[Rfam]
RNA sequence: UAUAUUCAAAUUUUCCGAGUCUAAACUUCUAAGGUUUAAACUAUGAAGUUAGGCCCAUGGGUAUAAAGAGAAAUUUUUAUGCCUCCCACUCUUGGAAAGGAAGGUUUGAGUAUGUUAA
Numbered sequence: 001u002a003u004a005u006u007c008a009a010a011u012u013u014u015c016c017g018a019g020u021c022u023a024a025a026c027u028u029c030u031a032a033g034g035u036u037u038a039a040a041c042u043a044u045g046a047a048g049u050u051a052g053g054c055c056c057a058u059g060g061g062u063a064u065a066a067a068g069a070g071a072a073a074u075u076u077u078u079a080u081g082c083c084u085c086c087c088a089c090u091c092u093u094g095g096a097a098a099g100g101a102a103g104g105u106u107u108g109a110g111u112a113u114g115u116u117a118a
Stems, first nucleotide, its partner, number of pairs: 003112002006109001011104006019055001021053002024050006033042003059084011085095002

Shown here is a 118-nucleotide RNA sequence from Gottschalkia purinilytica, a member of the family "Molybdenum/Tungsten riboswitch aptamer (Moco RNA motif)". Pairs were carried over by alignment from the consensus structure, which is taken from published work. The organism belongs to Gottschalkia, within Bacteria. Rfam 15.1 lists 1,248 matches to the family in 836 species. Rfam links the family to the GO terms molybdenum ion binding, tungstate binding and regulation of gene expression. A search with the family's covariance model found it, with a score of 81 bits.